[Rfam]
RNA sequence: CCGGCGGGCGGCCGCUCGCCGGUAACUGACACUGGUACCUGAUACGGCCGGUGCAG
Numbered sequence: 001c002c003g004g005c006g007g008g009c010g011g012c013c014g015c016u017c018g019c020c021g022g023u024a025a026c027u028g029a030c031a032c033u034g035g036u037a038c039c040u041g042a043u044a045c046g047g048c049c050g051g052u053g054c055a056g
Base pairs, nucleotide, nucleotide: 001022002021003020004019005018006017007016008015009014026056027055028054030053031052032051033050034049035048036047

The family of this 56-nucleotide RNA sequence from Streptomyces violaceusniger is "L17-Actino-Proteobacteria ribosomal protein leader". The base pairs follow the family's consensus structure, which is taken from published work. The source organism's lineage runs through Bacteria, Actinomycetes, Streptomycetaceae, Streptomyces and Streptomyces violaceusniger.